Rfam assigns this 83-nucleotide RNA sequence from Butyricicoccus pullicaecorum to the family "ZMP/ZTP riboswitch aptamer (pfl RNA motif)". It scores 57 bits against the family's covariance model.

RNA sequence: CCCAGAUCAUAUGACUGACGGAAUCGUGGGGCUCACCACAUGAAGUAUGAUCCUGUUUUUUGCCGACCGUCUGGGCACAGUUG
Numbered sequence: 001c002c003c004a005g006a007u008c009a010u011a012u013g014a015c016u017g018a019c020g021g022a023a024u025c026g027u028g029g030g031g032c033u034c035a036c037c038a039c040a041u042g043a044a045g046u047a048u049g050a051u052c053c054u055g056u057u058u059u060u061u062g063c064c065g066a067c068c069g070u071c072u073g074g075g076c077a078c079a080g081u082u083g
Stems, first nucleotide, its partner, number of pairs: 005052008015042001017071005026039004061077004
Background:
Taxonomically the source falls in Butyricicoccus pullicaecorum (Bacteria, Bacillota, Clostridia, Butyricicoccaceae).